[Rfam]
Nucleotides: 133
Stems, first nucleotide, its partner, number of pairs: 002064007011056003015052001019044001021042006072123001074121003079115001081113001088109003092105005
Number, partner (000 for none) and nucleotide at each position: 001000a002064c003063u004062c005061u006060c007059u008058c009000a010000g011056c012055u013054c014000u015052a016000g017000u018000c019044a020000g021042c022041u023040g024039u025038a026037c027000c028000u029000u030000c031000u032000c033000a034000g035000u036000g037026g038025u039024g040023c041022a042021g043000g044019u045000g046000g047000u048000g049000u050000u051000a052015u053000u054013g055012g056011g057000a058008g059007g060006g061005a062004g063003a064002g065000a066000a067000a068000u069000g070000a071000g072123c073000a074121c075120g076119g077000c078000a079115a080000u081113g082000c083000a084000c085000g086000g087000c088109a089108g090107g091000g092105g093104u094103a095102c096101c097000c098000u099000g100000u101096g102095g103094u104093a105092u106000c107090u108089c109088u110000g111000u112000u113081c114000c115079u116000u117000c118000c119076u120075u121074g122000g123072g124000c125000u126000c127000a128000a129000c130000a131000g132000g133000c

Source information:
Rfam assigns this 133-nucleotide RNA from Chanos chanos to the family "Small nucleolar RNA SNORA64/SNORA10 family". Clan: SNORA64 clan. Rfam classes the family as an H/ACA-box small nucleolar RNA. A reference for the family is Narayanan et al. (1999), "Nucleolar localization signals of box H/ACA small nucleolar RNAs", EMBO J.